[Rfam]
RNA sequence: UUAGUGGACGCUUUAGCUAUUGAACUGUUUUGUCCCUCUCCGUCAAAGAGUAAUUUGUUUGAGAGGGACAGAACAGAUCAAUAGCUAAAGCAUCCACUAAC
Numbered sequence: 001u002u003a004g005u006g007g008a009c010g011c012u013u014u015a016g017c018u019a020u021u022g023a024a025c026u027g028u029u030u031u032g033u034c035c036c037u038c039u040c041c042g043u044c045a046a047a048g049a050g051u052a053a054u055u056u057g058u059u060u061g062a063g064a065g066g067g068a069c070a071g072a073a074c075a076g077a078u079c080a081a082u083a084g085c086u087a088a089a090g091c092a093u094c095c096a097c098u099a100a101c
Base pairs, nucleotide, nucleotide: 001100002099003098004097005096006095011090012089013088014087015086016085017084018083019082020081021080022079023078025076026075027074028073029062034061049059050058051057052056
Notes:
mir-8517 microRNA precursor family: a 101-nucleotide sequence from Plutella xylostella. It scores 75 bits against the family's covariance model. Rfam links the family to the GO terms RISC complex and miRNA-mediated post-transcriptional gene silencing.